[Rfam]
RNA sequence: AAUGAAAGAGGUGUUUUUUUAGGCCAAUGAAAUUCUAAUCCUGUUUGAUAAAGAAAAAAUGAAUGCAAGUGUGCAAAACCAUUUUUUUCGGACAGGAUCAGUAUGUUUAUUUUGCUUGAUAACACCUAGCAGAAUUAACGCUUUUUUGUGUACUCCU
Numbered sequence: 001a002a003u004g005a006a007a008g009a010g011g012u013g014u015u016u017u018u019u020u021a022g023g024c025c026a027a028u029g030a031a032a033u034u035c036u037a038a039u040c041c042u043g044u045u046u047g048a049u050a051a052a053g054a055a056a057a058a059a060u061g062a063a064u065g066c067a068a069g070u071g072u073g074c075a076a077a078a079c080c081a082u083u084u085u086u087u088u089c090g091g092a093c094a095g096g097a098u099c100a101g102u103a104u105g106u107u108u109a110u111u112u113u114g115c116u117u118g119a120u121a122a123c124a125c126c127u128a129g130c131a132g133a134a135u136u137a138a139c140g141c142u143u144u145u146u147u148g149u150g151u152a153c154u155c156c157u
Stems, first nucleotide, its partner, number of pairs: 007157002010154003013123003017119002023115002026111006035101001038098007053089003056085006070075001128142003132139001

This 157-nucleotide RNA from Listeria kieliensis belongs to the Rfam family "Listeria sRNA rli53".
Taxonomically the source falls in Listeria (Bacteria, Bacillota, Bacilli, Listeriaceae).
The base pairs follow the family's consensus structure, which was predicted with RNAalifold.
On this family, see Toledo-Arana et al., Nature 2009: "The Listeria transcriptional landscape from saprophytism to virulence".
Rfam classes the family as a cis-regulatory element.